[Rfam]
RNA sequence: UAGAAUAAUGUAGAUAAGGGAAGUCGGCAAAAUAGAUCCGUAACUUCGGGAUAAGGAUUGGCUCUAAGGAUCGAGUAUUAGGGGUCUUUUCAAGAUGGAAGUUUCUUGGUUGAGAUCUGCUGGCGUCUUCGGACAAAGGUGGGCUUCUUUCGAGAGACUUUUCUGACGGGAUAGAUAGAUCAUUCUUUGGUCGUCGCCUUUUACACUUAACGAUCAACUUAGAACUGGUACGGACAAGGGGAAUCUGACUGUCUAAUUAAAACAUAGCAUUGCGAUGGUCAGAAAGUGAUGUUGACGCAAUGUGAUUUCUGCCCAGUGCUCUGAAUGUCAAAGUGAAGAAAUUCAACCAAGCGCGGGUAAACGGCGGGAGUAACUAUGACUCUCUUAAGGUAGCCAAAUGCCUCGUCAUCUAAUUAGUGACGCGCAUGAAUGGAUUAACGAGAUUCCCACUGUCCCUAUCUACUAUCUAGCGAAACCACAGCCAAGGGAACGGGCUUGGCAGA
Number, nucleotide and partner (000 for none) at each position: 001u469002a468003g467004a466005a000006u000007a000008a000009u000010g463011u462012a461013g460014a459015u458016a457017a000018g455019g454020g453021a000022a000023g000024u000025c000026g000027g000028c000029a000030a000031a000032a000033u000034a000035g059036a058037u057038c056039c055040g000041u000042a000043a000044c049045u000046u000047c000048g000049g044050g000051a000052u000053a000054a000055g039056g038057a037058u036059u035060g226061g225062c000063u223064c222065u221066a220067a219068g218069g215070a214071u213072c212073g211074a000075g204076u203077a202078u000079u000080a199081g198082g197083g000084g176085u175086c174087u000088u000089u171090u170091c169092a000093a000094g000095a000096u000097g164098g162099a161100a159101g158102u157103u156104u155105c154106u153107u152108g151109g150110u000111u000112g147113a146114g145115a000116u143117c142118u141119g140120c139121u138122g000123g000124c000125g134126u133127c132128u000129u000130c000131g000132g127133a126134c125135a000136a000137a000138g121139g120140u119141g118142g117143g116144c000145u114146u113147c112148u000149u000150u109151c108152g107153a106154g105155a104156g103157a102158c101159u100160u000161u099162u098163c000164u097165g000166a000167c000168g000169g091170g090171a089172u000173a000174g086175a085176u084177a000178g000179a000180u000181c000182a000183u000184u000185c000186u000187u000188u000189g000190g000191u000192c000193g000194u000195c000196g000197c082198c081199u080200u000201u000202u077203a076204c075205a000206c000207u000208u000209a000210a000211c073212g072213a071214u070215c069216a000217a000218c068219u067220u066221a065222g064223a063224a000225c061226u060227g231228g000229u000230a000231c227232g000233g000234a000235c000236a000237a000238g000239g448240g447241g446242a445243a444244u443245c442246u440247g439248a000249c000250u264251g263252u262253c000254u000255a000256a000257u000258u000259a000260a000261a000262a252263c251264a250265u000266a000267g303268c302269a301270u300271u299272g298273c297274g296275a000276u000277g000278g290279u289280c288281a287282g000283a000284a000285a000286g000287u281288g280289a279290u278291g000292u000293u000294g000295a000296c274297g273298c272299a271300a270301u269302g268303u267304g000305a000306u000307u434308u433309c432310u000311g365312c364313c363314c000315a000316g362317u361318g358319c357320u356321c355322u000323g354324a000325a000326u353327g352328u351329c000330a000331a000332a000333g000334u345335g344336a343337a342338g000339a000340a000341a000342u337343u336344c335345a334346a000347c000348c000349a000350a000351g328352c327353g326354c323355g321356g320357g319358u318359a000360a000361a317362c316363g313364g312365c311366g384367g383368g382369a381370g380371u379372a000373a000374c000375u000376a000377u000378g000379a371380c370381u369382c368383u367384c366385u389386u000387a000388a000389g385390g000391u000392a000393g000394c000395c000396a000397a000398a000399u000400g000401c000402c000403u000404c000405g421406u420407c419408a418409u417410c000411u000412a000413a000414u000415u000416a000417g409418u408419g407420a406421c405422g000423c000424g000425c000426a000427u000428g000429a000430a000431u000432g309433g308434a307435u000436u000437a000438a000439c247440g246441a000442g245443a244444u243445u242446c241447c240448c239449a000450c000451u000452g000453u020454c019455c018456c000457u016458a015459u014460c013461u012462a011463c010464u000465a000466u004467c003468u002469a001470g000471c000472g000473a000474a000475a000476c000477c000478a000479c000480a000481g000482c499483c498484a497485a496486g495487g000488g000489a000490a000491c000492g000493g000494g000495c486496u485497u484498g483499g482500c000501a000502g000503a000

Rfam assigns this 503-nucleotide part of an RNA from Hanseniaspora uvarum to the family "Eukaryotic large subunit ribosomal RNA". Taxonomically the source falls in Hanseniaspora (Eukaryota, Fungi, Saccharomycetes, Saccharomycodaceae).